[Rfam]
RNA sequence: GUUCUUGCAGGUGCAGCACCACCAAGAUUCACAUCGGAUCCGUCGUGAAUUCAUACGCGACGCGCAAGAUGAUGAGAAUCUUGAUGAUGCUGCAUCAGCAGGCAC
Dot-bracket structure: .........(((((((((.((.((((((((.(((((.................................))))).)))))))).)).))))))))).........
RNA: mir-172 microRNA precursor family